[Rfam]
RNA sequence: CCCUAGCCCUGAUGGCAGCGGCAUCCUUUUGCGGCGGAGCACAGCGGAGCCGGAAAAGAUAGAGCGGACAGCAGGAAUAGCU
Number, nucleotide and partner (000 for none) at each position: 001c000002c000003c000004u000005a000006g000007c000008c000009c074010u073011g072012a000013u070014g069015g000016c000017a000018g065019c064020g000021g000022c000023a060024u059025c058026c000027u000028u000029u055030u054031g000032c052033g051034g000035c049036g000037g000038a000039g000040c000041a000042c000043a000044g000045c000046g000047g000048a000049g035050c000051c033052g032053g000054a030055a029056a000057a000058g025059a024060u023061a000062g000063a000064g019065c018066g000067g000068a000069c014070a013071g000072c011073a010074g009075g000076a000077a000078u000079a000080g000081c000082u000